[Rfam]
RNA: Histone 3' UTR stem-loop
RNA sequence: ACAACGGCUCUUUUAAGAGCCACACACUUACACUGUGAGAGUAAC
Numbered sequence: 001a002c003a004a005c006g007g008c009u010c011u012u013u014u015a016a017g018a019g020c021c022a023c024a025c026a027c028u029u030a031c032a033c034u035g036u037g038a039g040a041g042u043a044a045c
Stems, first nucleotide, its partner, number of pairs: 006021006